The family of this 125-nucleotide RNA sequence from Brassica carinata is "MIR9563 microRNA precursor family". NCBI's taxonomy places the organism under Eukaryota, Tracheophyta, malvids, Brassicaceae, Brassica. The family has 2 seed sequences and 5,832 matches in Rfam 15.1.

[Rfam]
RNA sequence: AGAAUAUAAAAACCCGUCUCUUAACUUUUAACUAAAACAGUUAAGAAUCAGUUCUUAAAUAAGAGUUUUAAGAGCCGGUUCUUAACUUUUUUAGUUAAAAUUUAAGAGACGGAUUCUUAUAUUCC
Numbered sequence: 001a002g003a004a005u006a007u008a009a010a011a012a013c014c015c016g017u018c019u020c021u022u023a024a025c026u027u028u029u030a031a032c033u034a035a036a037a038c039a040g041u042u043a044a045g046a047a048u049c050a051g052u053u054c055u056u057a058a059a060u061a062a063g064a065g066u067u068u069u070a071a072g073a074g075c076c077g078g079u080u081c082u083u084a085a086c087u088u089u090u091u092u093a094g095u096u097a098a099a100a101u102u103u104a105a106g107a108g109a110c111g112g113a114u115u116c117u118u119a120u121a122u123u124c125c
Stems, first nucleotide, its partner, number of pairs: 002124008011115002014112011026100012039087001041085007